[Rfam]
Source information: A member of the RNA family "Small nucleolar RNA SNORA40" from Sapajus apella, 125 nucleotides long. About the family: The snoRNA ACA 40 belongs to the H/ACA family of snoRNAs and guides the pseudouridylation of 28S rRNA subunit at position U4565. NB This family has a high threshold value to exclude a large number of closely related sequences that do not appear to have conserved H and ACA boxes, and may be pseudogenes. A reference for the family is Ofengand and Bakin (1997), "Mapping to nucleotide resolution of pseudouridine residues in large subunit ribosomal RNAs from representative eukaryotes, prokaryotes, archaebacteria, mitochondria and chloroplasts", J Mol Biol. The family has 28 seed sequences and 2,550 matches in Rfam 15.1. It is annotated as an H/ACA-box small nucleolar RNA.

RNA sequence: UGCACUUAUGUUUUAUUUUUUAACUUGUGGACAAACACUUAUAGAUAGAUGCAAAAAAAAAUCCUCUUUUCCAUCUGAGAACUUACUGUUCUGUAUGAGUUUUGAUACAUAUAAGAAAGGCUAUU
Numbered sequence: 001u002g003c004a005c006u007u008a009u010g011u012u013u014u015a016u017u018u019u020u021u022a023a024c025u026u027g028u029g030g031a032c033a034a035a036c037a038c039u040u041a042u043a044g045a046u047a048g049a050u051g052c053a054a055a056a057a058a059a060a061a062u063c064c065u066c067u068u069u070u071c072c073a074u075c076u077g078a079g080a081a082c083u084u085a086c087u088g089u090u091c092u093g094u095a096u097g098a099g100u101u102u103u104g105a106u107a108c109a110u111a112u113a114a115g116a117a118a119g120g121c122u123a124u125u
Base pairs, nucleotide, nucleotide: 001053002052003051004050006048007047008046009045011043014037016035017034018033019031024029061122063120064119065118067116068115069114070113078103079102080101081100082099083098084097085096